[Rfam]
RNA sequence: GUGACCUUACUUGAACAGGAUCUGUUCUAUAGGAUUCACAUCCGAGUCCCAAAGUCUUAAACAGACGUGAACUAAAACCUGGUUGAUGAUACAGGGCCACACGAUCAGAGCGUGAGUACUGGCUAGAAUGGCCUGAUGGGUCUACAAUAGCCUUAAAGGAUCGUAGCUCAGCCACCCCAGUGGCAGCUGAGGAGGUCGUGUGGUUGUCUGACAGGUU
Number, nucleotide and partner (000 for none) at each position: 001g037002u000003g035004a000005c033006c032007u031008u000009a000010c000011u000012u000013g027014a026015a025016c024017a023018g022019g000020a000021u000022c018023u017024g016025u015026u014027c013028u000029a000030u000031a007032g006033g005034a000035u003036u000037c001038a000039c000040a000041u000042c000043c067044g066045a000046g000047u063048c000049c000050c000051a000052a058053a000054g000055u000056c000057u000058u052059a000060a000061a000062c000063a047064g000065a000066c044067g043068u000069g000070a000071a000072c000073u000074a000075a000076a000077a216078c215079c214080u213081g212082g000083u000084u000085g000086a000087u000088g000089a000090u000091a000092c000093a000094g000095g000096g204097c203098c202099a201100c200101a199102c198103g197104a196105u195106c194107a000108g000109a000110g164111c163112g162113u000114g000115a000116g000117u000118a000119c000120u000121g152122g151123c150124u149125a148126g145127a000128a143129u000130g141131g000132c139133c138134u000135g000136a000137u000138g133139g132140g000141u130142c000143u128144a000145c126146a000147a000148u125149a124150g123151c122152c121153u000154u000155a000156a000157a000158g000159g000160a000161u000162c112163g111164u110165a000166g000167c191168u190169c189170a188171g187172c186173c000174a000175c183176c182177c000178c000179a000180g000181u000182g176183g175184c000185a000186g172187c171188u170189g169190a168191g167192g000193a000194g106195g105196u104197c103198g102199u101200g100201u099202g098203g097204u096205u000206g000207u000208c000209u000210g000211a000212c081213a080214g079215g078216u077217u000

Shown here is a 217-nucleotide RNA from Aquilegia coerulea, a member of the family "Plant small nucleolar RNA U3". The match comes from Rfam's covariance-model search (126 bits). On this family, see Zwieb, Nucleic Acids Res 1997: "The uRNA database". Clan: U3 clan. About the family: Small nucleolar RNAs (snoRNAs) are involved in the processing and modification of rRNA in the nucleolus. There are two main classes of snoRNAs: the box C/D class, and the box H/ACA class. U3 snoRNA is a member of the box C/D class. Indeed, the box C/D element is a subset of the six short sequence elements found in all U3 snoRNAs, namely boxes A, A', B, C, C', and D. The U3 snoRNA secondary structure is characterised by a small 5' domain (with boxes A and A'), and a larger 3' domain (with boxes B, C, C', and D), the two domains being linked by a single-stranded hinge. The family's consensus secondary structure is taken from published work.